[Rfam]
About this RNA:
The family of this 121-nucleotide RNA sequence is "SAM-I/IV (S-adenosyl methionine) riboswitch aptamer".
RNA sequence: GAAUUGCAUUUAGAGCGGUCGGAGUCGUAGUGCUCUUGGCCCGGCAACCUGGGUUCGCCCCCAAGGUGCUUGCACACGAUGUGCGAUGCGGUCGGAUACCCGGCAAACCGGCGCCGAUUCG
Numbered sequence: 001g002a003a004u005u006g007c008a009u010u011u012a013g014a015g016c017g018g019u020c021g022g023a024g025u026c027g028u029a030g031u032g033c034u035c036u037u038g039g040c041c042c043g044g045c046a047a048c049c050u051g052g053g054u055u056c057g058c059c060c061c062c063a064a065g066g067u068g069c070u071u072g073c074a075c076a077c078g079a080u081g082u083g084c085g086a087u088g089c090g091g092u093c094g095g096a097u098a099c100c101c102g103g104c105a106a107a108c109c110g111g112c113g114c115c116g117a118u119u120c121g
Base pairs, nucleotide, nucleotide: 006089007088008087009086010085015042017041018040019039020038021037043070044069045068048066049065050064051062052061053060055116057114058113091104092103093102094101
Pairs were carried over by alignment from the consensus structure, which is taken from published work. It is one of the family's seed sequences. Clan: SAM clan.